[Rfam]
RNA sequence: UUGCGCAAGUGAUGUUUGAUUGAGCAAUCUUAGCAAUCAUUUGUCGGCGUGCCAGGCCUAUUCUUAUCACCAGAAUCACUGCCCGGACACAGAGUCCACUGCGGCCCGCCGAAUCAGGCCUGCCGCGGCCGCCAAUCCCACAGGGUUGAGCCGGCCCCCGGGCUGCACACUGUCCAGAAGACGGCGUGAGGUGAGCCGGCGUCAUAAGCGUCGAGCACGGACGAAAUUCCAAGGGGGGGCCGACGGGUCCCCCU
Numbered sequence: 001u002u003g004c005g006c007a008a009g010u011g012a013u014g015u016u017u018g019a020u021u022g023a024g025c026a027a028u029c030u031u032a033g034c035a036a037u038c039a040u041u042u043g044u045c046g047g048c049g050u051g052c053c054a055g056g057c058c059u060a061u062u063c064u065u066a067u068c069a070c071c072a073g074a075a076u077c078a079c080u081g082c083c084c085g086g087a088c089a090c091a092g093a094g095u096c097c098a099c100u101g102c103g104g105c106c107c108g109c110c111g112a113a114u115c116a117g118g119c120c121u122g123c124c125g126c127g128g129c130c131g132c133c134a135a136u137c138c139c140a141c142a143g144g145g146u147u148g149a150g151c152c153g154g155c156c157c158c159c160g161g162g163c164u165g166c167a168c169a170c171u172g173u174c175c176a177g178a179a180g181a182c183g184g185c186g187u188g189a190g191g192u193g194a195g196c197c198g199g200c201g202u203c204a205u206a207a208g209c210g211u212c213g214a215g216c217a218c219g220g221a222c223g224a225a226a227u228u229c230c231a232a233g234g235g236g237g238g239g240c241c242g243a244c245g246g247g248u249c250c251c252c253c254u
Stems, first nucleotide, its partner, number of pairs: 001012004043057003076194005081163004085097004101126005108119003127156005134147005166188003170184005195216002197213006233254004238249004

A member of the RNA family "Pseudomonas sRNA P24" from Pseudomonas sp. MRSN 12121, 254 nucleotides long.
The match comes from Rfam's covariance-model search (262 bits).
On this family, see Livny et al., Nucleic Acids Res 2006: "Identification of 17 Pseudomonas aeruginosa sRNAs and prediction of sRNA-encoding genes in 10 diverse pathogens using the bioinformatic tool sRNAPredict2".
The base pairs follow the family's consensus structure, which was predicted with RNAalifold.
Rfam's curators write: This small RNA (sRNA) was computationally identified in the genome of the opportunistic pathogen Pseudomonas aeruginosa and its expression verified by Northern blot analysis. P24 is conserved across several Pseudomonas species and in Azotobacter vinelandii. It appears to be consistently located between a hypothetical protein gene and a transcriptional regulator gene (AsnC family) in the genomes of all these species.